The record is an 82-nucleotide RNA from Ornithorhynchus anatinus, which matches "mir-1422 microRNA precursor family" in Rfam. Rfam's curators put it in the seed alignment.
RNA sequence: AUGAUUCUGGUGUCAUACAAGACAUAUGUUUUCUUGAUAUUCACAUAAUCUGGAAAACUAUGUUUUGUGUGAUACGAGUCAA
Numbered sequence: 001a002u003g004a005u006u007c008u009g010g011u012g013u014c015a016u017a018c019a020a021g022a023c024a025u026a027u028g029u030u031u032u033c034u035u036g037a038u039a040u041u042c043a044c045a046u047a048a049u050c051u052g053g054a055a056a057a058c059u060a061u062g063u064u065u066u067g068u069g070u071g072a073u074a075c076g077a078g079u080c081a082a
Stems, first nucleotide, its partner, number of pairs: 003080004010075002013072010029057006